[Rfam]
The record is a 193-nucleotide sequence from Trichonephila clavata, which matches "U2 spliceosomal RNA" in Rfam. By type it is a spliceosomal small nuclear RNA. The organism belongs to Trichonephila, within Eukaryota. Rfam links the family to the GO terms U2 snRNP, pre-mRNA branch point binding and mRNA branch site recognition. U2 is a small nuclear RNA (snRNA) component of the spliceosome (involved in pre-mRNA splicing). The family is grouped with related families in Rfam's "U2 clan".
RNA sequence: AUUAUUUGGACGUGAGCAGUAGUAUUACGUACAGAACUCUGUUCUUAUCAGCUUGACAUCUGGUACGGCAUCCACAGGGUGCCCCUAAGGUGUUUCGUAAUUUUUGGAUGAUGGCUUGAGAUUAAGGAUUUAUCCGGUCUCGAGCACGAGUUGCCCCGUUUUCGCACUAACGACGAGGUUCAGCUCUUAUAAU
Numbered sequence: 001a002u003u004a005u006u007u008g009g010a011c012g013u014g015a016g017c018a019g020u021a022g023u024a025u026u027a028c029g030u031a032c033a034g035a036a037c038u039c040u041g042u043u044c045u046u047a048u049c050a051g052c053u054u055g056a057c058a059u060c061u062g063g064u065a066c067g068g069c070a071u072c073c074a075c076a077g078g079g080u081g082c083c084c085c086u087a088a089g090g091u092g093u094u095u096c097g098u099a100a101u102u103u104u105u106g107g108a109u110g111a112u113g114g115c116u117u118g119a120g121a122u123u124a125a126g127g128a129u130u131u132a133u134c135c136g137g138u139c140u141c142g143a144g145c146a147c148g149a150g151u152u153g154c155c156c157c158g159u160u161u162u163c164g165c166a167c168u169a170a171c172g173a174c175g176a177g178g179u180u181c182a183g184c185u186c187u188u189a190u191a192a193u
Stems, first nucleotide, its partner, number of pairs: 003024004046065006067083007114145008126135003148186006155177001157175004
Dot-bracket structure: ..((((..............)))).....................((((((........)))))).(((((((...)))))))..............................((((((((....(((....)))..))))))))..((((((.(.((((...........)))).)...)))))).......